[Rfam]
RNA sequence: ACCCGGCUGGCGCAAUGGUAGCGCGUCAGACUUCUAAUUCCCUCUGAAAUUGAUAUCUGAAGGUUGUGGGUUCGACCCCCACGUUGGGUU
Numbered sequence: 001a002c003c004c005g006g007c008u009g010g011c012g013c014a015a016u017g018g019u020a021g022c023g024c025g026u027c028a029g030a031c032u033u034c035u036a037a038u039u040c041c042c043u044c045u046g047a048a049a050u051u052g053a054u055a056u057c058u059g060a061a062g063g064u065u066g067u068g069g070g071u072u073c074g075a076c077c078c079c080c081a082c083g084u085u086g087g088g089u090u
Stems, first nucleotide, its partner, number of pairs: 001089007010024004026060005066082005
Shown here is a 90-nucleotide RNA sequence from Tuber magnatum, a member of the family "tRNA". Rfam's curators write: Transfer RNA (tRNA) molecules are approximately 80 nucleotides in length. Their secondary structure includes four short double-helical elements and three loops (D, anti-codon, and T loops). Further hydrogen bonds mediate the characteristic L-shaped molecular structure. tRNAs have two regions of fundamental functional importance: the anti-codon, which is responsible for specific mRNA codon recognition, and the 3' end, to which the tRNAs corresponding amino acid is attached (by aminoacyl-tRNA synthetases). tRNAs cope with the degeneracy of the genetic code in two manners: having more than one tRNA (with a specific anti-codon) for a particular amino acid; and 'wobble' base-pairing, i.e. permitting non-standard base-pairing at the 3rd anti-codon position. The family's RNA type in Rfam is transfer RNA. The base pairs follow the family's consensus structure, which is taken from published work.